[Rfam]
RNA sequence: UUCGCGGUGAACUGCCAGGUGCUGUCGUCGCCCAGGAGUGCCUGCUCGCCGAAGUGGUCGCCGUCGGCGACGACGCCGAGCCGGGUCUGCUCGCCGUACGAUCCCUCGCCGAGCUUCUCGAUCUUGCCGUGGGCGACGAGGUAGACCGUGUCGGCCGGUUCGCCGACGGUGGCGAUGACCUCGCCCGGGCCGUACUCGCGCUGGACGAAGCGGUCGGCGAGGGCGGUCAGCGCGCCCUCGUCGCCGAACGUGCGCAGCGCGGCGAUCUCGCCGAGCUCCUGCGGGAUGACCCGCACCUCCGAGCCCGUCUUCACGAAGGUCACCCGGCCGUCGCCGACGGCGUAGCUGAGCCGCCGGUUGACCCGGUAGGUGCCGGCGCUGACCUGUACCCAGGGCAGUACUUUCAGCAGCCAGCGGGACGAGAUGCCCUGCAUCUGCGGAGCGGACUUGGUGGUCGUCGCCAGGUUCCGCGCGGCCGCCGUGUCCAGGCUGGUCCGCGG
Numbered sequence: 001u002u003c004g005c006g007g008u009g010a011a012c013u014g015c016c017a018g019g020u021g022c023u024g025u026c027g028u029c030g031c032c033c034a035g036g037a038g039u040g041c042c043u044g045c046u047c048g049c050c051g052a053a054g055u056g057g058u059c060g061c062c063g064u065c066g067g068c069g070a071c072g073a074c075g076c077c078g079a080g081c082c083g084g085g086u087c088u089g090c091u092c093g094c095c096g097u098a099c100g101a102u103c104c105c106u107c108g109c110c111g112a113g114c115u116u117c118u119c120g121a122u123c124u125u126g127c128c129g130u131g132g133g134c135g136a137c138g139a140g141g142u143a144g145a146c147c148g149u150g151u152c153g154g155c156c157g158g159u160u161c162g163c164c165g166a167c168g169g170u171g172g173c174g175a176u177g178a179c180c181u182c183g184c185c186c187g188g189g190c191c192g193u194a195c196u197c198g199c200g201c202u203g204g205a206c207g208a209a210g211c212g213g214u215c216g217g218c219g220a221g222g223g224c225g226g227u228c229a230g231c232g233c234g235c236c237c238u239c240g241u242c243g244c245c246g247a248a249c250g251u252g253c254g255c256a257g258c259g260c261g262g263c264g265a266u267c268u269c270g271c272c273g274a275g276c277u278c279c280u281g282c283g284g285g286a287u288g289a290c291c292c293g294c295a296c297c298u299c300c301g302a303g304c305c306c307g308u309c310u311u312c313a314c315g316a317a318g319g320u321c322a323c324c325c326g327g328c329c330g331u332c333g334c335c336g337a338c339g340g341c342g343u344a345g346c347u348g349a350g351c352c353g354c355c356g357g358u359u360g361a362c363c364c365g366g367u368a369g370g371u372g373c374c375g376g377c378g379c380u381g382a383c384c385u386g387u388a389c390c391c392a393g394g395g396c397a398g399u400a401c402u403u404u405c406a407g408c409a410g411c412c413a414g415c416g417g418g419a420c421g422a423g424a425u426g427c428c429c430u431g432c433a434u435c436u437g438c439g440g441a442g443c444g445g446a447c448u449u450g451g452u453g454g455u456c457g458u459c460g461c462c463a464g465g466u467u468c469c470g471c472g473c474g475g476c477c478g479c480c481g482u483g484u485c486c487a488g489g490c491u492g493g494u495c496c497g498c499g500g
Stems, first nucleotide, its partner, number of pairs: 006390004011385001015381001018325002024320003028316002036312003040308002047303001049301001051299002054233002058229001060227005065111004075103001077100002080097002084095003117222002122217002127212001130209001131206001134203002138199001140197001143196002149192002155188004160183001167172001234296001237293001240290004245285001249283004254278001256277003259271003329342004352378006361371003391431007399423001401421001403418003407415001437476002440473001442471005447465006484499001486497001488495001

Rfam assigns this 500-nucleotide sequence from Actinacidiphila rubida to the family "Saccharopolyspora sRNA 350". The match comes from Rfam's covariance-model search (195 bits). Rfam classes the family as an antisense RNA. A reference for the family is Liu et al. (2013), "Prediction and characterization of small non-coding RNAs related to secondary metabolites in Saccharopolyspora erythraea", PLoS One. NCBI's taxonomy places the organism under Bacteria, Bacillati, Actinomycetota, Actinomycetes, Actinacidiphila.